Actinobacteria sRNA Ms_IGR-5: a 253-nucleotide sequence from Allostreptomyces psammosilenae. The organism belongs to Allostreptomyces, within Bacteria.

RNA sequence: AGCGAAGAAGGGAGGUGGUCCGACCAGUGUUCACUGACAGGACUCGUGAGGUGGCUGCCCGCUAGGGUCGCCCCUGCCCUGCGGAUCAUCCGCGGCGGCCGUUCCCCUCGGGGUUCAGACACGGUCGCGGGUAGUGGAACCCGGGCGAAUCCACAGCAGUCACCCGACCCGCGGGCUCACCGGUCGUCCUUCCGGUGCCCGGUACGACAGCCGUGUGCUGGCAUACCGGGAAGUGGCCCGCGGGUCGUCUGCU
Dot-bracket structure: .............((((((..................................))))))((((.((.((((.(((((.................................................)))))..))))...)).)))).................(((((((((((((..(((((........................................))))).....)))))))))))))......
Numbered sequence: 001a002g003c004g005a006a007g008a009a010g011g012g013a014g015g016u017g018g019u020c021c022g023a024c025c026a027g028u029g030u031u032c033a034c035u036g037a038c039a040g041g042a043c044u045c046g047u048g049a050g051g052u053g054g055c056u057g058c059c060c061g062c063u064a065g066g067g068u069c070g071c072c073c074c075u076g077c078c079c080u081g082c083g084g085a086u087c088a089u090c091c092g093c094g095g096c097g098g099c100c101g102u103u104c105c106c107c108u109c110g111g112g113g114u115u116c117a118g119a120c121a122c123g124g125u126c127g128c129g130g131g132u133a134g135u136g137g138a139a140c141c142c143g144g145g146c147g148a149a150u151c152c153a154c155a156g157c158a159g160u161c162a163c164c165c166g167a168c169c170c171g172c173g174g175g176c177u178c179a180c181c182g183g184u185c186g187u188c189c190u191u192c193c194g195g196u197g198c199c200c201g202g203u204a205c206g207a208c209a210g211c212c213g214u215g216u217g218c219u220g221g222c223a224u225a226c227c228g229g230g231a232a233g234u235g236g237c238c239c240g241c242g243g244g245u246c247g248u249c250u251g252c253u
Stems, first nucleotide, its partner, number of pairs: 014059006060147004065142002068137004073131005165247013180229005

Overview:
It is annotated as a small RNA. The match comes from Rfam's covariance-model search (73 bits).